RNA sequence: AUCUCAUCCAGAGUGGUGGAGGGACUGGCCCGAUGAAACCCGGCAACCGUCAGCUUUUUCUGAAAAUGGUGCUAAUUCCAGCAAAGCAAUUUGCUUUGGAAGAUGAGAA
Numbered sequence: 001a002u003c004u005c006a007u008c009c010a011g012a013g014u015g016g017u018g019g020a021g022g023g024a025c026u027g028g029c030c031c032g033a034u035g036a037a038a039c040c041c042g043g044c045a046a047c048c049g050u051c052a053g054c055u056u057u058u059u060c061u062g063a064a065a066a067u068g069g070u071g072c073u074a075a076u077u078c079c080a081g082c083a084a085a086g087c088a089a090u091u092u093g094c095u096u097u098g099g100a101a102g103a104u105g106a107g108a109a
Stems, first nucleotide, its partner, number of pairs: 002108007013041001015040003021031003025081004042073004047069002050063003077101001082098006

The record is a 109-nucleotide RNA from Thermoanaerobacterium sp. RBIITD, which matches "SAM riboswitch aptamer (S box leader)" in Rfam. The base pairs follow the family's consensus structure, which is taken from published work. Lineage of the source: Bacteria > Bacillota > Thermoanaerobacterales > Thermoanaerobacteraceae > Thermoanaerobacterium. A search with the family's covariance model found it, with a score of 93 bits. About the family: The SAM riboswitch is found upstream of a number of genes which code for proteins involved in methionine or cysteine biosynthesis in Gram-positive bacteria.